Annotation:
This 112-nucleotide sequence from Glycine soja belongs to the Rfam family "MIR1520 microRNA precursor family". The source organism's lineage runs through Eukaryota, Euphyllophyta, Spermatophyta, Magnoliopsida and Glycine subgen. Soja. Its Rfam clan is "MIR1520 microRNA precursor clan".

[Rfam]
RNA sequence: UGAUGUUGACUGCCACGUUUCAUGUUUUGAUUGGUCAAUGAAAACAACAAUACAUUUUAUCUUUCAUGAAGUUGACGUCCAAUUAGAACAUGACACGUGACAGUCAUCAUUC
Numbered sequence: 001u002g003a004u005g006u007u008g009a010c011u012g013c014c015a016c017g018u019u020u021c022a023u024g025u026u027u028u029g030a031u032u033g034g035u036c037a038a039u040g041a042a043a044a045c046a047a048c049a050a051u052a053c054a055u056u057u058u059a060u061c062u063u064u065c066a067u068g069a070a071g072u073u074g075a076c077g078u079c080c081a082a083u084u085a086g087a088a089c090a091u092g093a094c095a096c097g098u099g100a101c102a103g104u105c106a107u108c109a110u111u112c
Stems, first nucleotide, its partner, number of pairs: 012101001014099002017096002021092003025088004030083005
Dot-bracket structure: ...........(.((.((..(((.((((.(((((............................................))))).)))).)))..)).)).)...........